This 97-nucleotide RNA sequence from Cynara cardunculus belongs to the Rfam family "Plastid-rps12 3UTR RNA". From the family's description: Plastid rpl20 is a non-coding RNA (ncRNA) recognised in plastids. It was found in the three prime untranslated region (3UTR) of rps12 gene, its 3UTR location sugest a role in transcript maduration. On this family, see Richter et al., Plant Commun 2023: "Retrograde signaling in plants: A critical review focusing on the GUN pathway and beyond". The match comes from Rfam's covariance-model search (89 bits). The family's consensus secondary structure was predicted with LocARNA. By type it is a cis-regulatory element.
RNA sequence: GGUUCCCAUUGGCGUAAAUCCACUCGCCUCAAUUCAAGAUGAGAAACAAUUCUCCAUUGGUCACAAAUUGUUAUCCAUUAAUCAGAGGAAAUAUUAG
Numbered sequence: 001g002g003u004u005c006c007c008a009u010u011g012g013c014g015u016a017a018a019u020c021c022a023c024u025c026g027c028c029u030c031a032a033u034u035c036a037a038g039a040u041g042a043g044a045a046a047c048a049a050u051u052c053u054c055c056a057u058u059g060g061u062c063a064c065a066a067a068u069u070g071u072u073a074u075c076c077a078u079u080a081a082u083c084a085g086a087g088g089a090a091a092u093a094u095u096a097g
Stems, first nucleotide, its partner, number of pairs: 010022003052087003056078002059075003063071002